[Rfam]
Rfam assigns this 447-nucleotide part of an RNA from Amblyospora sp. to the family "Microsporidia small subunit ribosomal RNA". The literature on the family includes a 2001 paper in Science by Yusupov et al., "Crystal structure of the ribosome at 5.5 A resolution". The sequence is in the family's curated seed alignment. Taxonomically the source falls in Amblyospora (Eukaryota, Microsporidia, Pansporoblastina, Amblyosporidae).

RNA sequence: CACCAGGUUGAUUCUGCCUGACGUGGACGCUUGCCUUAAGGAUUAAGCCAUGCAAGCCAGCGAAUUUUAUAUGGAGCGGCGUACGGCUCAGUAGGACAGGACUUAUCUGGUCAUGAUGCGGGAUAACCACGGAAACCUGUGGCUAAUACGGAGAAUGAGUGAGGGCCUGGCCUAUCAGCUUGUCGGUAAGGUAAAGGCUUACCGGGGCGAUUACGGGUAACGAGGAAUCGGGGUUUGAUUUGGAGAAGGAGCCUGAGAGAUGGCUGCUACGUCUAAGGAUGGCAGCAGGCGCGAAACUUGCCCACUCGGAGGACCGGAGGCAGUGACGGGGCGUGAUUUUAUUAUGAUGAGGGCGCUGCAAACAUGCGCCCGAAAGCAACUGGAGGGCAAGUCUGGUGCCAGCAGCCGCGGUAAUACCAGCUCCAGGAGCGUCUGUGUGUAUUGCUG
Number, nucleotide and partner (000 for none) at each position: 001c000002a000003c000004c020005a019006g018007g017008u016009u000010g000011a000012u000013u000014c000015u000016g008017c007018c006019u005020g004021a000022c437023g436024u435025g434026g433027a432028c431029g430030c429031u428032u000033g332034c331035c330036u329037u328038a000039a000040g324041g292042a000043u000044u000045a000046a000047g290048c289049c288050a000051u287052g286053c285054a000055a000056g080057c079058c000059a000060g077061c076062g000063a000064a000065u000066u071067u000068u000069a000070u000071a066072u000073g000074g000075a000076g061077c060078g000079g057080c056081g000082u000083a000084c000085g000086g000087c245088u244089c243090a000091g000092u000093a000094g000095g000096a000097c169098a168099g167100g166101a000102c164103u163104u000105a000106u162107c161108u000109g000110g000111u158112c157113a156114u155115g000116a000117u152118g000119c151120g000121g149122g000123a000124u000125a000126a000127c142128c141129a140130c139131g138132g137133a000134a000135a000136c000137c132138u131139g130140u129141g128142g127143c000144u000145a000146a000147u000148a000149c121150g000151g119152a117153g000154a000155a114156u113157g112158a111159g000160u000161g107162a106163g103164g102165g000166c100167c099168u098169g097170g000171c217172c216173u215174a000175u000176c000177a000178g208179c207180u206181u000182g000183u205184c204185g203186g202187u201188a200189a199190g198191g000192u000193a000194a000195a000196g000197g000198c190199u189200u188201a187202c186203c185204g184205g183206g180207g179208c178209g000210a000211u000212u000213a000214c000215g173216g172217g171218u000219a000220a000221c242222g241223a240224g239225g236226a235227a234228u233229c000230g000231g000232g000233g228234u227235u226236u225237g000238a000239u224240u223241u222242g221243g089244a088245g087246a000247a268248g267249g000250a265251g264252c263253c000254u000255g000256a000257g000258a000259g000260a000261u000262g000263g252264c251265u250266g000267c248268u247269a000270c281271g280272u279273c278274u000275a000276a000277g000278g273279a272280u271281g270282g000283c000284a000285g053286c052287a051288g049289g048290c047291g000292c041293g000294a000295a000296a000297c000298u322299u000300g321301c320302c319303c000304a000305c000306u317307c316308g315309g314310a000311g000312g000313a000314c309315c308316g307317g306318a000319g302320g301321c300322a298323g000324u040325g000326a000327c000328g037329g036330g035331g034332c033333g000334u000335g000336a000337u000338u000339u000340u000341a000342u000343u000344a000345u000346g000347a000348u000349g000350a000351g371352g370353g369354c368355g367356c366357u000358g000359c000360a000361a000362a000363c000364a000365u000366g356367c355368g354369c353370c352371c351372g000373a000374a000375a000376g000377c000378a000379a000380c426381u425382g424383g423384a422385g421386g000387g000388c000389a000390a000391g000392u000393c420394u419395g418396g417397u000398g000399c000400c000401a000402g409403c408404a000405g000406c000407c000408g403409c402410g000411g000412u000413a000414a000415u000416a000417c396418c395419a394420g393421c385422u384423c383424c382425a381426g380427g000428a031429g030430c029431g028432u027433c026434u025435g024436u023437g022438u000439g000440u000441a000442u000443u000444g000445c000446u000447g000